[Rfam]
RNA sequence: GUGGCACUCAAAUGUUGCAGCACUUUUCACUGGGACAUGUCAGAAGAGUGCUUCCACAUUUGAGUGCCAC
Numbered sequence: 001g002u003g004g005c006a007c008u009c010a011a012a013u014g015u016u017g018c019a020g021c022a023c024u025u026u027u028c029a030c031u032g033g034g035a036c037a038u039g040u041c042a043g044a045a046g047a048g049u050g051c052u053u054c055c056a057c058a059u060u061u062g063a064g065u066g067c068c069a070c
Stems, first nucleotide, its partner, number of pairs: 004067009014057002017054001019052006026045003